[Rfam]
RNA sequence: UCCACCGUGAGGUGGAAUCUGAAGGAAGGUGGAGGCAAAUCUCUGGUCUGACGAACAGGAAUCACAUCAGGCUGCAGUUAAGGAUAAGGUUGCUACUCAAACUAAAGUCCAAUAACUACUCGGAAUUAGCUGUAGCUUUUUAAAGAGAUAUCAUGCUGUUCGCACC
Numbered sequence: 001u002c003c004a005c006c007g008u009g010a011g012g013u014g015g016a017a018u019c020u021g022a023a024g025g026a027a028g029g030u031g032g033a034g035g036c037a038a039a040u041c042u043c044u045g046g047u048c049u050g051a052c053g054a055a056c057a058g059g060a061a062u063c064a065c066a067u068c069a070g071g072c073u074g075c076a077g078u079u080a081a082g083g084a085u086a087a088g089g090u091u092g093c094u095a096c097u098c099a100a101a102c103u104a105a106a107g108u109c110c111a112a113u114a115a116c117u118a119c120u121c122g123g124a125a126u127u128a129g130c131u132g133u134a135g136c137u138u139u140u141u142a143a144a145g146a147g148a149u150a151u152c153a154u155g156c157u158g159u160u161c162g163c164a165c166c
Stems, first nucleotide, its partner, number of pairs: 001016006028166004035159002041155001046149004062144001066140001071136003075132007082110004088103004
Shown here is a 166-nucleotide RNA sequence from Parablautia intestinalis, a member of the family "Group II catalytic intron D1-D4-3". Pairs were carried over by alignment from the consensus structure.